Shown here is a 52-nucleotide RNA sequence from Solanum commersonii, a member of the family "MIR1886 microRNA precursor family". Taxonomically the source falls in Solanum (Eukaryota, Viridiplantae, Spermatophyta, asterids). The family has 4 seed sequences and 1,053 matches in Rfam 15.1.
RNA sequence: UGAGAUGGAAUCAGGGUUUGGACAUGCGAUUUCAUGCUGAUCCCAUCUCAUG
Dot-bracket structure: ((((((((.(((((.(((((......)))....)).))))).))))))))..